[Rfam]
The family of this 88-nucleotide RNA from Paenibacillus durus is "pemK RNA". It scores 38 bits against the family's covariance model. NCBI's taxonomy places the organism under Bacteria, Bacilli, Caryophanales, Paenibacillaceae, Paenibacillus.
RNA sequence: AUCAUGAUACUUCUGCCCGGCCAGCGUCACUGCAUUGGGGGCAGCCCGCUCGGAUGAGGGGGAGCUUCGUGGAAGAUCGGGGCUAUGA
Numbered sequence: 001a002u003c004a005u006g007a008u009a010c011u012u013c014u015g016c017c018c019g020g021c022c023a024g025c026g027u028c029a030c031u032g033c034a035u036u037g038g039g040g041g042c043a044g045c046c047c048g049c050u051c052g053g054a055u056g057a058g059g060g061g062g063a064g065c066u067u068c069g070u071g072g073a074a075g076a077u078c079g080g081g082g083c084u085a086u087g088a
Stems, first nucleotide, its partner, number of pairs: 012085001013044006045062003049058003063084007
Dot-bracket structure: ...........(((((((....................))))))(((.(((....))).)))(((((((........))))))))...